This 122-nucleotide RNA from Rubrivivax sp. belongs to the Rfam family "Guanidine-I riboswitch aptamer".
This family represents a conserved RNA structure found upstream of the ykkC and yxkD genes in Bacillus subtilis and related genes in other bacteria. The function of this family is unclear although it has been suggested that it may function to switch on efflux pumps and detoxification systems in response to harmful environmental molecules.
The organism belongs to Rubrivivax, within Bacteria.
RNA sequence: CGAAAUGGUGGCUAGGGUUCCGGUCUCGUUGUUCCGUGUACGAGAUGUCUGGUCCGAGAGCUGCCGGCCCGGGUCGGCCAUUACCGACGCAGGCUCCACGGCGGGACAAAAGCCCGGGAGGU
Numbered sequence: 001c002g003a004a005a006u007g008g009u010g011g012c013u014a015g016g017g018u019u020c021c022g023g024u025c026u027c028g029u030u031g032u033u034c035c036g037u038g039u040a041c042g043a044g045a046u047g048u049c050u051g052g053u054c055c056g057a058g059a060g061c062u063g064c065c066g067g068c069c070c071g072g073g074u075c076g077g078c079c080a081u082u083a084c085c086g087a088c089g090c091a092g093g094c095u096c097c098a099c100g101g102c103g104g105g106a107c108a109a110a111a112g113c114c115c116g117g118g119a120g121g122u
Base pairs, nucleotide, nucleotide: 007065008064009063010062011061012060015055016054020052021051022049023046024045025044026043027042028041066095067094068093069092071090073088074087075086076085077084097117099120103115104114105113